[Rfam]
RNA sequence: UGUCAUGUAGCUUAUCAGACUGGUGUUGGCUUUGAGUUUUUGGCAACAGCAGUCUAAUAGGCUGUCUGACA
Numbered sequence: 001u002g003u004c005a006u007g008u009a010g011c012u013u014a015u016c017a018g019a020c021u022g023g024u025g026u027u028g029g030c031u032u033u034g035a036g037u038u039u040u041u042g043g044c045a046a047c048a049g050c051a052g053u054c055u056a057a058u059a060g061g062c063u064g065u066c067u068g069a070c071a
Stems, first nucleotide, its partner, number of pairs: 008064008018054005024048005030042001

mir-21 microRNA precursor family: a 71-nucleotide sequence from Danio rerio.
The source organism's lineage runs through Eukaryota, Metazoa, Deuterostomia, Cypriniformes and Danio.
Gene Ontology terms of the family: RISC complex and miRNA-mediated post-transcriptional gene silencing.